[Rfam]
RNA sequence: AUCGCUUCUCGGCCUUUUGGUUAAGAUCAAAUGUAGUCCCUGUUCUUUUCAGUUUAAUAUCUGAUGCGUCCUCUAGCUGAGGACAGUACAUUAAAUGGAUUUUUGGAGCAGGGAGUUGGGCUAGGCACUUGCUCCGUCCGCUGCACGCAUCAACCUGGUAUUGCAAUACUUCCGGGAACGGUGCACCCCUC
Numbered sequence: 001a002u003c004g005c006u007u008c009u010c011g012g013c014c015u016u017u018u019g020g021u022u023a024a025g026a027u028c029a030a031a032u033g034u035a036g037u038c039c040c041u042g043u044u045c046u047u048u049u050c051a052g053u054u055u056a057a058u059a060u061c062u063g064a065u066g067c068g069u070c071c072u073c074u075a076g077c078u079g080a081g082g083a084c085a086g087u088a089c090a091u092u093a094a095a096u097g098g099a100u101u102u103u104u105g106g107a108g109c110a111g112g113g114a115g116u117u118g119g120g121c122u123a124g125g126c127a128c129u130u131g132c133u134c135c136g137u138c139c140g141c142u143g144c145a146c147g148c149a150u151c152a153a154c155c156u157g158g159u160a161u162u163g164c165a166a167u168a169c170u171u172c173c174g175g176g177a178a179c180g181g182u183g184c185a186c187c188c189c190u191c
Stems, first nucleotide, its partner, number of pairs: 007026003011022004047066001049064004068084006112144001114142003118138002124135002147184005154176005